A member of the RNA family "Archaeal large subunit ribosomal RNA" from Candidatus Korarchaeum cryptofilum, 164 nucleotides of a longer RNA. Pairs were carried over by alignment from the consensus structure, which is taken from published work. Taxonomically the source falls in Candidatus Korarchaeum cryptofilum (Archaea, Thermoproteati, Thermoproteota, Candidatus Korarchaeales). Its family is annotated with ribosome and structural constituent of ribosome in the Gene Ontology.

[Rfam]
RNA sequence: GGUAACGGAGCUGUGGCGGGCGAGAGUCCCCAUCGGCCCCGCCGCUUGCUUCCCCGACGUCGGCACUGCCCAUCCUGGGGGUGCAGCAGCCUCCAAGGGUGGGGAUGUUCGCCCAUUAAAGGGGAACGUGAGCUGGGUUCAGAACGUCGCGAGCCAGUUCGGUU
Numbered sequence: 001g002g003u004a005a006c007g008g009a010g011c012u013g014u015g016g017c018g019g020g021c022g023a024g025a026g027u028c029c030c031c032a033u034c035g036g037c038c039c040c041g042c043c044g045c046u047u048g049c050u051u052c053c054c055c056g057a058c059g060u061c062g063g064c065a066c067u068g069c070c071c072a073u074c075c076u077g078g079g080g081g082u083g084c085a086g087c088a089g090c091c092u093c094c095a096a097g098g099g100u101g102g103g104g105a106u107g108u109u110c111g112c113c114c115a116u117u118a119a120a121g122g123g124g125a126a127c128g129u130g131a132g133c134u135g136g137g138u139u140c141a142g143a144a145c146g147u148c149g150c151g152a153g154c155c156a157g158u159u160c161g162g163u164u
Base pairs, nucleotide, nucleotide: 009050010049011048013047014044015043016042017041018040019039020038024034025033061136062134063133064132066128067125069123070122071121074099075098078093079092080091081090082089102114103113104112142160143159144158145157146155148153